[Rfam]
RNA: Eukaryotic large subunit ribosomal RNA, nucleotides 2509 to 2966
RNA sequence: AAGUCGGCAAGUCAUAUCCGUAACUUCGGGAUAAGGAUUGGCUCUAAGGGCUGGGUCGGUCGGGUCGGGGCGCGAAGCAGGGCUGGGCGCACGCCGCGGCUGGACAAGGCGGCGCCCUCCUCUUCCUCCGUCGCCUUCCGCCCGGGUCCCGGGCGGCAGCGCGGCGGGGGGGCCCCCAGGAGGGCCAAGGGGGGGUGGAGCUCGGCCCCGGGCGGUGCAGUUCCCGGACGGUGCGGGGGGCCUGGCGGGGCAGCGGCGCCGACUCUGGACGAGCACCGGGCCCUUCCCUUGGAUCGCCCCAGCUGUGGCGGGCGCCUCUCUCCUGCCCCCUCGAGCCGCGCGGCGGCCUGGCUCCCUCCGGGGGCCGGUGCCCUCUGCAGGCCGUGGGGCGGGUGCCGGGGGCCGGCGCCUCGCCUCGGCCGAUGCCUAGCAGCUGGCUUAGAACUGAUGCGGACCAG
Dot-bracket structure: ...............((((....(....).....)))).((.(((((((((((.(((((((((.............((((((..((((((.((((((((((((...................................................................................................................................................................................................)))))))))))).))))))..)).)))).........................................................................................)))))))))......)))))..)))))).))(...).......